RNA sequence: GUACUCCCUCUGUCCCAUAAUGUAAGACGCUUUUUGAUACUAGUGUAGUGUCGAAAAACGUCUUACAUUAUGGGACGGAGGAAGUAU
Dot-bracket structure: ..(((.(((((.(((((.(((((((((((.(((((((((((.....))))))))))).))))))))))).))))).))))).)))..

About this RNA:
Shown here is an 87-nucleotide sequence from Triticum aestivum, a member of the family "MIR1120/MIR1122 microRNA precursor family". Gene Ontology terms of the family: RISC complex and miRNA-mediated post-transcriptional gene silencing. Rfam 15.1 lists 44,765 matches to the family in 8 species. The base pairs follow the family's consensus structure, which was predicted with RNAalifold.